Annotation:
Shown here is a 100-nucleotide RNA sequence from Methanohalobium evestigatum, a member of the family "Pyrrolysine insertion sequence mtbB". The base pairs follow the family's consensus structure, which was predicted with WAR. Its family is annotated with pyrrolysine incorporation in the Gene Ontology. The family's RNA type in Rfam is cis-regulatory element.
[Rfam]
RNA sequence: UAGGUAGGAGUCGGCGACCCAGUGGGUAUGCCGAUAGCACACGUAUCCGCAUCCGGUAUGACCGGUAUGCGUGCAGGUGGAGACCUUGUUGCAAGAAUGC
Numbered sequence: 001u002a003g004g005u006a007g008g009a010g011u012c013g014g015c016g017a018c019c020c021a022g023u024g025g026g027u028a029u030g031c032c033g034a035u036a037g038c039a040c041a042c043g044u045a046u047c048c049g050c051a052u053c054c055g056g057u058a059u060g061a062c063c064g065g066u067a068u069g070c071g072u073g074c075a076g077g078u079g080g081a082g083a084c085c086u087u088g089u090u091g092c093a094a095g096a097a098u099g100c
Stems, first nucleotide, its partner, number of pairs: 007038001010035007017027003073092004079086002